[Rfam]
RNA sequence: GGAGCCAUAGGAAGGGAUCCCAAUCCAGCCUUAAGAAGAGAAACCUGCCAUGGGAGUCUUAGUGAUUGGUGACUCUCCUAAUGACUUA
Numbered sequence: 001g002g003a004g005c006c007a008u009a010g011g012a013a014g015g016g017a018u019c020c021c022a023a024u025c026c027a028g029c030c031u032u033a034a035g036a037a038g039a040g041a042a043a044c045c046u047g048c049c050a051u052g053g054g055a056g057u058c059u060u061a062g063u064g065a066u067u068g069g070u071g072a073c074u075c076u077c078c079u080a081a082u083g084a085c086u087u088a
Base pairs, nucleotide, nucleotide: 002087003086004085006083007082008081010079011078013076015074016073018071020069021068022067023066024065025064029062038060039059040058041057044054045053046052047051
RNA: mir-9014 microRNA precursor family
Organism: Equus asinus